[Rfam]
Nucleotides: 167
Base pairs, nucleotide, nucleotide: 008160009159010158011157016080017079018078019077020076021075023074024073025072033065034064035063036062037061038060039059084111085110086109087108088107089106090105091104092103094101095100112138113137114136115135116134118132119131120130121129122128140152141151142150143149144148
Number, partner (000 for none) and nucleotide at each position: 001000a002000c003000c004000u005000a006000g007000g008160g009159u010158a011157g012000a013000g014000g015000u016080g017079c018078u019077g020076u021075u022000a023074g024073u025072u026000a027000a028000u029000a030000g031000u032000a033065u034064u035063u036062a037061g038060a039059u040000u041000g042000a043000g044000c045000c046000g047000g048000c049000a050000a051000g052000c053000u054000a055000a056000g057000a058000u059039g060038u061037c062036u063035a064034a065033a066000g067000a068000a069000a070000g071000g072025a073024a074023c075021a076020a077019c078018g079017g080016c081000c082000g083000a084111a085110g086109a087108g088107g089106u090105a091104a092103u093000a094101c095100c096000g097000g098000c099000a100095g101094g102000a103092a104091u105090u106089a107088u108087c109086u110085c111084u112138g113137g114136u115135c116134a117000u118132g119131u120130a121129c122128a123000u124000a125000a126000u127000a128122u129121g130120u131119g132118c133000c134116u135115g136114a137113c138112u139000g140152u141151c142150a143149c144148g145000u146000u147000a148144u149143g150142u151141g152140g153000a154000g155000a156000g157011c158010u159009a160008c161000a162000a163000g164000g165000u166000a167000g